[Rfam]
RNA sequence: CCUGCUCUGCAACAAUAUUUCAUCAGUGGUGAACUAGUGAAGCCUACUGGUGAAAUGUAGUUGCGUAGGAGG
Numbered sequence: 001c002c003u004g005c006u007c008u009g010c011a012a013c014a015a016u017a018u019u020u021c022a023u024c025a026g027u028g029g030u031g032a033a034c035u036a037g038u039g040a041a042g043c044c045u046a047c048u049g050g051u052g053a054a055a056u057g058u059a060g061u062u063g064c065g066u067a068g069g070a071g072g
Stems, first nucleotide, its partner, number of pairs: 001072003005068002008065006015058013028044003